[Rfam]
RNA sequence: CGAGCUGCGGCGGGAGAGCCCUGACCGGCCACCCGUCAUCCCGGAGACACGUGUCAGGCGCCGAAGGAGCAAAUCCUCCCCGGGAAACUCUCAGGCCCACGUACCGCCGCGGCGAG
Number, nucleotide and partner (000 for none) at each position: 001c000002g000003a000004g000005c000006u111007g110008c109009g108010g107011c106012g105013g104014g000015a000016g000017a000018g000019c000020c058021c057022u056023g055024a054025c053026c000027g000028g000029c000030c000031a000032c000033c000034c000035g000036u000037c000038a000039u000040c000041c000042c000043g000044g000045a000046g000047a000048c000049a000050c000051g000052u000053g025054u024055c023056a022057g021058g020059c000060g096061c095062c094063g092064a091065a000066g000067g090068a089069g088070c000071a000072a000073a000074u082075c000076c000077u000078c000079c000080c000081c000082g074083g000084g000085a000086a000087a000088c069089u068090c067091u064092c063093a000094g062095g061096c060097c000098c000099a000100c000101g000102u000103a000104c013105c012106g011107c010108c009109g008110c007111g006112g000113c000114g000115a000116g000
This 116-nucleotide RNA sequence from Sanguibacter antarcticus belongs to the Rfam family "Glycine riboswitch aptamer". This family represents the bacterial glycine riboswitch. For this family Rfam cites "A glycine-dependent riboswitch that uses cooperative binding to control gene expression" (Mandal et al., Science, 2004).